[Rfam]
This 413-nucleotide sequence from Neopusillimonas aestuarii belongs to the Rfam family "Bacterial RNase P class A". Rfam describes the family as follows. Ribonuclease P (RNase P) is a ubiquitous endoribonuclease, found in archaea, bacteria and eukarya as well as chloroplasts and mitochondria. It is annotated as a ribozyme. The family is grouped with related families in Rfam's "RNaseP clan". Rfam links the family to the GO terms dimeric ribonuclease P complex, tRNA processing and ribonuclease P activity. A search with the family's covariance model found it, with a score of 217 bits.
RNA sequence: GGGGCAGAUCGGGUAGUCGCGGUAAUUUUUUAUCGAGGAAGGUCCGGACUCCACAGGGCAGGGUAGCGGCUAACAGCCGUCCGGUAACGACGGCCGCUUAGGCGGUUGUAAUAACCGAGGAACAGGGCCACAGAGACGAGUCUGUUACGUGGGCGUGUUUCGGCGCGCACUGACACGGUGAAUCCGUGUGGCGUACCUUGUAUUGCAAGGUACAACGUAGCAGGGUGAAACGCGGUAACCUCUAUCCGGAGCAACACCAAAUAGGCAUGCGCAUGGCCUUUGCGGCCAUACGGGCGGCCCGUCCGUGCAUGCGGGUAGGUGGCUAGAGUUGGUUAGUAAUAGCCAACCCAGAGGAAUGAUUGCCCAUCGAUAUUCUCGAUGUACAGAAUCCGGCCUAUAGAUCUGUUCCGCAC
Number, nucleotide and partner (000 for none) at each position: 001g409002g408003g407004g406005c405006a404007g403008a402009u401010c400011g398012g364013g363014u362015a361016g360017u359018c358019g000020c035021g034022g033023u032024a031025a030026u000027u000028u000029u000030u025031u024032a023033u022034c021035g020036a000037g000038g000039a000040a396041g395042g394043u000044c393045c392046g391047g390048a389049c251050u250051c249052c248053a000054c000055a000056g300057g299058g298059c297060a000061g247062g246063g245064u244065a243066g080067c079068g078069g077070c076071u000072a000073a000074c000075a000076g070077c069078c068079g067080u066081c119082c117083g116084g115085u114086a000087a000088c000089g000090a000091c000092g000093g000094c000095c000096g000097c000098u000099u000100a000101g000102g000103c000104g000105g000106u000107u000108g000109u000110a000111a000112u000113a000114a085115c084116c083117g082118a000119g081120g242121a241122a000123c000124a000125g240126g239127g236128c235129c234130a000131c000132a000133g000134a000135g000136a000137c000138g000139a000140g000141u000142c224143u223144g221145u220146u219147a218148c217149g216150u215151g000152g213153g000154c000155g000156u000157g000158u000159u000160u000161c000162g000163g000164c000165g000166c000167g000168c000169a000170c000171u000172g000173a000174c000175a000176c000177g000178g000179u000180g000181a000182a000183u000184c000185c000186g000187u000188g000189u000190g000191g000192c000193g000194u000195a000196c000197c000198u000199u000200g000201u000202a000203u000204u000205g000206c000207a000208a000209g000210g000211u000212a000213c152214a000215a150216c149217g148218u147219a146220g145221c144222a000223g143224g142225g000226u000227g000228a000229a000230a000231c000232g000233c000234g129235g128236u127237a000238a000239c126240c125241u121242c120243u065244a064245u063246c062247c061248g052249g051250a050251g049252c000253a000254a000255c321256a320257c319258c318259a000260a000261a000262u000263a000264g000265g312266c311267a310268u309269g308270c307271g000272c000273a000274u000275g000276g000277c000278c000279u000280u000281u000282g000283c000284g000285g000286c000287c000288a000289u000290a000291c305292g304293g303294g302295c301296g000297g059298c058299c057300c056301g295302u294303c293304c292305g291306u000307g270308c269309a268310u267311g266312c265313g000314g000315g000316u000317a000318g258319g257320u256321g255322g000323c000324u000325a000326g000327a000328g347329u346330u345331g344332g343333u342334u341335a340336g000337u000338a000339a000340u335341a334342g333343c332344c331345a330346a329347c328348c000349c000350a000351g000352a000353g000354g000355a000356a000357u000358g018359a017360u016361u015362g014363c013364c012365c000366a000367u000368c000369g000370a000371u000372a000373u000374u000375c000376u000377c000378g000379a000380u000381g000382u000383a000384c000385a000386g000387a000388a000389u048390c047391c046392g045393g044394c042395c041396u040397a000398u011399a000400g010401a009402u008403c007404u006405g005406u004407u003408c002409c001410g000411c000412a000413c000